[Rfam]
RNA sequence: CAAUUGAAUAAUCCUUUUUUUCGUAUAUCCUUAAUAAUUGGUUUAAGGGUCUCUACCGGGAACCGUAAAUUUCUGGCUACGAAAAUAUGCUGCGGCAUA
Numbered sequence: 001c002a003a004u005u006g007a008a009u010a011a012u013c014c015u016u017u018u019u020u021u022c023g024u025a026u027a028u029c030c031u032u033a034a035u036a037a038u039u040g041g042u043u044u045a046a047g048g049g050u051c052u053c054u055a056c057c058g059g060g061a062a063c064c065g066u067a068a069a070u071u072u073c074u075g076g077c078u079a080c081g082a083a084a085a086u087a088u089g090c091u092g093c094g095g096c097a098u099a
Stems, first nucleotide, its partner, number of pairs: 018085008029048006057075006
RNA: Purine riboswitch aptamer
Organism: Paenibacillus sp. FSL R7-0331